[Rfam]
Small Cajal body specific RNA 6: a 275-nucleotide RNA from Nannospalax galili. The family has 17 seed sequences and 1,309 matches in Rfam 15.1. The literature on the family includes a 2002 paper in EMBO J by Darzacq et al., "Cajal body-specific small nuclear RNAs: a novel class of 2'-O-methylation and pseudouridylation guide RNAs". The match comes from Rfam's covariance-model search (138 bits). U88 is small Cajal body specific RNA (scaRNA). scaRNAs are a novel class of small nuclear RNAs which localise to the Cajal bodies. U88 is found associated with both fibrillarin and Gar1p and co-localises with coilin in Cajal bodies. The base pairs follow the family's consensus structure, which is taken from published work.
Nucleotides: 275
Stems, first nucleotide, its partner, number of pairs: 001275004038255001040253003045230004050225003068215004072131004077126002089116004095111004141192003145188002154179004160173002
Number, partner (000 for none) and nucleotide at each position: 001275g002274g003273u004272c005000a006000a007000u008000g009000a010000u011000g012000a013000u014000u015000g016000g017000u018000a019000a020000a021000a022000g023000g024000u025000c026000u027000g028000a029000u030000u031000g032000c033000a034000c035000u036000g037000a038255a039000u040253g041252u042251c043000a044000c045230a046229g047228c048227c049000c050225c051224u052223u053000c054000u055000u056000c057000c058000u059000u060000g061000c062000c063000c064000u065000c066000a067000g068215c069214u070213c071212c072131c073130a074129g075128c076000a077126g078125c079000c080000c081000c082000c083000u084000u085000c086000u087000u088000u089116c090115c091114u092113a093000g094000c095111a096110c097109a098108u099000u100000u101000a102000a103000g104000u105000a106000a107000c108098a109097u110096g111095u112000a113092u114091g115090g116089g117000a118000u119000a120000a121000u122000g123000g124000g125078g126077c127000a128075g129074c130073u131072g132000a133000u134000a135000a136000u137000u138000u139000a140000g141192g142191a143190u144000u145188c146187u147000g148000u149000c150000a151000g152000u153000g154179u155178g156177u157176g158000u159000u160173c161172c162000a163000a164000g165000a166000g167000u168000c169000a170000g171000u172161g173160g174000u175000u176157c177156a178155c179154a180000g181000u182000u183000g184000a185000c186000u187146a188145g189000u190143a191142u192141c193000c194000a195000a196000c197000a198000a199000c200000a201000c202000c203000a204000g205000u206000u207000a208000c209000a210000c211000a212071g213070g214069a215068g216000u217000c218000u219000u220000g221000a222000u223052g224051a225050g226000u227048g228047g229046c230045u231000g232000g233000a234000u235000g236000g237000g238000u239000a240000u241000g242000a243000c244000a245000g246000u247000g248000c249000a250000u251042g252041a253040u254000c255038u256000c257000a258000a259000g260000u261000u262000u263000u264000c265000a266000a267000u268000c269000u270000g271000a272004g273003a274002c275001c